[Rfam]
RNA sequence: CGGCGGGACACCCCUCCCCAACGAGGGGCAUCUAUCUGGAAGGUUAGGCAGA
Dot-bracket structure: ..........((((((......))))))...(((.((....)).))).....